[Rfam]
RNA sequence: CCCAAGCCCGGGCUCUUUCCACUGAGCCACGCUGCUUCCCCAUGUGCCAAACACACACAGCGUGGCUCAGUGGAAAGAGCACAGGCUUUGGA
Numbered sequence: 001c002c003c004a005a006g007c008c009c010g011g012g013c014u015c016u017u018u019c020c021a022c023u024g025a026g027c028c029a030c031g032c033u034g035c036u037u038c039c040c041c042a043u044g045u046g047c048c049a050a051a052c053a054c055a056c057a058c059a060g061c062g063u064g065g066c067u068c069a070g071u072g073g074a075a076a077g078a079g080c081a082c083a084g085g086c087u088u089u090g091g092a
Base pairs, nucleotide, nucleotide: 002091003090005087006086007085008084010082012080013079014078015077016076017075018074019073022070023069024068025067026066027065028064029063030062031061032060033059034058

This 92-nucleotide RNA from Ornithorhynchus anatinus belongs to the Rfam family "mir-130 microRNA precursor family". A search with the family's covariance model found it, with a score of 44 bits. For this family Rfam cites "Embryonic stem cell-specific MicroRNAs" (Houbaviy et al., Dev Cell, 2003).